[Rfam]
RNA sequence: AACAAACGAAUAUGCUUACCGUAGACAGCAGGUGACUGAGCUUUCGGUCUUAAUUUCCUGCCGAGGUGUUAUGAUAAACGUUCGAUAUUCAAAGCUUCACAGCUUAUGGAAUAUGGGAAUCAUCAUGCCUUCGCUCUUGUCUGCGAAGGCAUUUUUGCUUGCAGCG
Dot-bracket structure: ...........................(((((.((((((....)))))).......)))))................................................................(((((((((........)))))))))...............

A member of the RNA family "Ribosomal protein L10 leader" from Paenibacillus sp. UNCCL117, 166 nucleotides long.
Lineage of the source: Bacteria > Bacillati > Bacillota > Paenibacillaceae > Paenibacillus.
Rfam's curators write: This family is a putative r-protein leader autoregulatory structure found in B. subtilis and other low-GC Gram-positive bacteria.